About this RNA
Rfam assigns this 66-nucleotide sequence from Sphingomonas sanxanigenens to the family "int-alpA RNA". Acidobacteria (1 example), Planctomycetes (1 example), Proteobacteria. Rfam classes the family as a small RNA. Rfam 15.1 lists 577 matches to the family in 491 species. The organism belongs to Sphingomonas sanxanigenens, within Bacteria. The base pairs follow the family's consensus structure, which is taken from published work.
[Rfam]
Nucleotides: 066
Stems, first nucleotide, its partner, number of pairs: 001053008011021003027043005035065001
Number, partner (000 for none) and nucleotide at each position: 001053g002052g003051g004050g005049c006048g007047g008046c009000u010000a011021g012020g013019g014000u015000a016000g017000c018000u019013c020012c021011c022000g023000a024000a025000c026000g027043g028042c029041u030040g031039g032000u033000u034000u035065c036000c037000g038000c039031c040030c041029g042028g043027c044000c045000u046008g047007c048006c049005g050004c051003c052002c053001c054000g055000u056000c057000a058000u059000c060000a061000u062000c063000a064000a065035g066000c